[Rfam]
RNA sequence: UCUGAAACAGGGCAAACCCAUCGAAAGAUGGCGACGCAAAGUCACCGGCCUAAAGCGAACCUGCGGUUCGCUACGGUAGCGGGACCACCAGA
Numbered sequence: 001u002c003u004g005a006a007a008c009a010g011g012g013c014a015a016a017c018c019c020a021u022c023g024a025a026a027g028a029u030g031g032c033g034a035c036g037c038a039a040a041g042u043c044a045c046c047g048g049c050c051u052a053a054a055g056c057g058a059a060c061c062u063g064c065g066g067u068u069c070g071c072u073a074c075g076g077u078a079g080c081g082g083g084a085c086c087a088c089c090a091g092a
Base pairs, nucleotide, nucleotide: 012037013036018031019030020029021028022027041085042084043083045082046081047080048077049076050075055071056070057069058068059067060066
The record is a 92-nucleotide RNA sequence from Azospira restricta, which matches "c-di-GMP-I riboswitch aptamer" in Rfam. It scores 71 bits against the family's covariance model. Rfam links the family to the GO term cyclic-di-GMP binding. The source organism's lineage runs through Bacteria, Pseudomonadati, Betaproteobacteria, Rhodocyclaceae and Azospira.